This 279-nucleotide part of an RNA from Colletotrichum asianum belongs to the Rfam family "Eukaryotic large subunit ribosomal RNA". Pairs were carried over by alignment from the consensus structure, which is taken from published work.
RNA sequence: GAGUUAACUUUAUAUAUAAAUAUUUAAGUCUUAAACCCUUAUAAAUAAUAAAAGUAAAUAUAAGUAAAAGCUUUAGUAUAUUAUUAACUAAUCUUAAUAUUCUUAGAUAGAUUUAAGUAAAAGUAUAUAGGGUUAGACCUAAAAGAAAGUAAACUAUAUAUAUAUAGAGUGAAGCUAGAGGAAACUCUAGUAGAAGCUUAUAAUAGUUUUAAUAUAUAAAUUAAUUAUUAAAUAUAUAUAUAGGGGCGAAAGACUAAUUAAACCUUCUAGUAGCUAGUU
Numbered sequence: 001g002a003g004u005u006a007a008c009u010u011u012a013u014a015u016a017u018a019a020a021u022a023u024u025u026a027a028g029u030c031u032u033a034a035a036c037c038c039u040u041a042u043a044a045a046u047a048a049u050a051a052a053a054g055u056a057a058a059u060a061u062a063a064g065u066a067a068a069a070g071c072u073u074u075a076g077u078a079u080a081u082u083a084u085u086a087a088c089u090a091a092u093c094u095u096a097a098u099a100u101u102c103u104u105a106g107a108u109a110g111a112u113u114u115a116a117g118u119a120a121a122a123g124u125a126u127a128u129a130g131g132g133u134u135a136g137a138c139c140u141a142a143a144a145g146a147a148a149g150u151a152a153a154c155u156a157u158a159u160a161u162a163u164a165u166a167g168a169g170u171g172a173a174g175c176u177a178g179a180g181g182a183a184a185c186u187c188u189a190g191u192a193g194a195a196g197c198u199u200a201u202a203a204u205a206g207u208u209u210u211a212a213u214a215u216a217u218a219a220a221u222u223a224a225u226u227a228u229u230a231a232a233u234a235u236a237u238a239u240a241u242a243g244g245g246g247c248g249a250a251a252g253a254c255u256a257a258u259u260a261a262a263c264c265u266u267c268u269a270g271u272a273g274c275u276a277g278u279u
Stems, first nucleotide, its partner, number of pairs: 005135013021043002028036002048055002063085005070077002087118002089115003092111003098105002138277001145267003149263002154243011165231001167199004174191007203228004208224002211222002245255002